[Rfam]
This 87-nucleotide sequence from Fusobacterium polymorphum belongs to the Rfam family "SAM riboswitch aptamer (S box leader)". It is one of the family's seed sequences. The base pairs follow the family's consensus structure, which is taken from published work.

RNA sequence: UAACCAUCGAGAGAAACUGAGGGACUGGCCCUAUGAAGUUUCAGCAACCUGUCAUCAGAUGUGGUGCUAAUUCCAGAUAGAUGGAAG
Numbered sequence: 001u002a003a004c005c006a007u008c009g010a011g012a013g014a015a016a017c018u019g020a021g022g023g024a025c026u027g028g029c030c031c032u033a034u035g036a037a038g039u040u041u042c043a044g045c046a047a048c049c050u051g052u053c054a055u056c057a058g059a060u061g062u063g064g065u066g067c068u069a070a071u072u073c074c075a076g077a078u079a080g081a082u083g084g085a086a087g
Base pairs, nucleotide, nucleotide: 001087004084005083006082007081008080013042014041015040016039017038021031022030023029025076026075027074028073043068044067045066046065048064049063051060052059053058072079